[Rfam]
RNA sequence: UUUUAGCCCCGAUAACAGCAAGUAUCCUUUUAUUUCGUUUGGUAAACGGAAUAAAAGAUACUGCGAAUAGCGGGACAAAGU
Numbered sequence: 001u002u003u004u005a006g007c008c009c010c011g012a013u014a015a016c017a018g019c020a021a022g023u024a025u026c027c028u029u030u031u032a033u034u035u036c037g038u039u040u041g042g043u044a045a046a047c048g049g050a051a052u053a054a055a056a057g058a059u060a061c062u063g064c065g066a067a068u069a070g071c072g073g074g075a076c077a078a079a080g081u
Base pairs, nucleotide, nucleotide: 009073010072011071013069014068018064019063024059025058026057030054031053032052033051034050035049036048037047038046039045
RNA: Flavo-1 RNA